[Rfam]
RNA: mir-8/mir-141/mir-200 microRNA precursor family
Nucleotides: 069
Stems, first nucleotide, its partner, number of pairs: 003067001005065005010059005016053005022047006
Number, partner (000 for none) and nucleotide at each position: 001000g002000u003067u004000c005065a006064c007063a008062u009061c010059u011058u012057a013056c014055c015000g016053g017052g018051c019050a020049g021000c022047a023046u024045u025044a026043g027042a028000u029000u030000a031000a032000a033000g034000u035000u036000g037000a038000a039000u040000c041000u042027u043026c044025u045024a046023a047022u048000a049020c050019u051018g052017u053016c054000a055014g056013g057012u058011a059010a060000a061009g062008a063007u064006g065005u066000c067003g068000u069000c